[Rfam]
MIR394 microRNA precursor family: a 103-nucleotide RNA sequence from Arachis hypogaea. On this family, see Lu et al., Genome Res 2006: "MicroRNAs and other small RNAs enriched in the Arabidopsis RNA-dependent RNA polymerase-2 mutant".

RNA sequence: CUAACAGAGCUCUGUUGGCAGUAUGUCCACCUCCCCAAGAAUUUUGGUGUCAAAAAGAACGAAGAUCGGAGGAGGUGGACAGAAUGCCAAUAAACUCUGUAAA
Numbered sequence: 001c002u003a004a005c006a007g008a009g010c011u012c013u014g015u016u017g018g019c020a021g022u023a024u025g026u027c028c029a030c031c032u033c034c035c036c037a038a039g040a041a042u043u044u045u046g047g048u049g050u051c052a053a054a055a056a057g058a059a060c061g062a063a064g065a066u067c068g069g070a071g072g073a074g075g076u077g078g079a080c081a082g083a084a085u086g087c088c089a090a091u092a093a094a095c096u097c098u099g100u101a102a103a
Stems, first nucleotide, its partner, number of pairs: 011094001015090006024081011